[Rfam]
The record is a 122-nucleotide RNA from Rattus norvegicus, which matches "Small nucleolar RNA SNORA32" in Rfam. The base pairs follow the family's consensus structure, which was predicted with RNAfold.
RNA sequence: AAACAAGAACAAAUGCUUUUAGAGUGCAGUUUCUCAUUUGCUGUGGACAUGACCAUAAAGAAAAAUUCCCAUUAGGUUUUCCAUAUGCUCCUUGUCUAGCAGUUAACCUGUUGGGAACAUUU
Number, nucleotide and partner (000 for none) at each position: 001a000002a000003a000004c000005a000006a050007g000008a000009a000010c046011a000012a044013a000014u000015g000016c000017u000018u000019u000020u000021a000022g000023a000024g000025u000026g041027c040028a039029g038030u000031u000032u000033c000034u000035c000036a000037u000038u029039u028040g027041c026042u000043g000044u012045g000046g010047a000048c000049a000050u006051g000052a000053c000054c000055a000056u000057a000058a000059a000060g000061a000062a000063a000064a000065a000066u000067u000068c115069c114070c113071a112072u000073u000074a000075g108076g107077u106078u105079u000080u000081c000082c000083a000084u000085a000086u101087g100088c099089u000090c000091c000092u000093u000094g000095u000096c000097u000098a000099g088100c087101a086102g000103u000104u000105a078106a077107c076108c075109u000110g000111u000112u071113g070114g069115g068116a000117a000118c000119a000120u000121u000122u000
The organism belongs to Rattus, within Eukaryota. Its family is annotated with nucleolus and RNA processing in the Gene Ontology. The family's RNA type in Rfam is H/ACA-box small nucleolar RNA.